RNA sequence: CGCCUAAACCCUACGGGGCAUGGCCAAAAAUCCUACGCGAAUAGAAACGGCCUCGUAAUCGCCGCUGCUUAUUCGCGUAGGUCUACGCCCGAAAGGGUGUAGGGCAUGUCCGAAAGGAUAUGUC
Numbered sequence: 001c002g003c004c005u006a007a008a009c010c011c012u013a014c015g016g017g018g019c020a021u022g023g024c025c026a027a028a029a030a031u032c033c034u035a036c037g038c039g040a041a042u043a044g045a046a047a048c049g050g051c052c053u054c055g056u057a058a059u060c061g062c063c064g065c066u067g068c069u070u071a072u073u074c075g076c077g078u079a080g081g082u083c084u085a086c087g088c089c090c091g092a093a094a095g096g097g098u099g100u101a102g103g104g105c106a107u108g109u110c111c112g113a114a115a116g117g118a119u120a121u122g123u124c
Stems, first nucleotide, its partner, number of pairs: 002024003009018003032081011048067004083102008103124009
RNA: LOOT RNA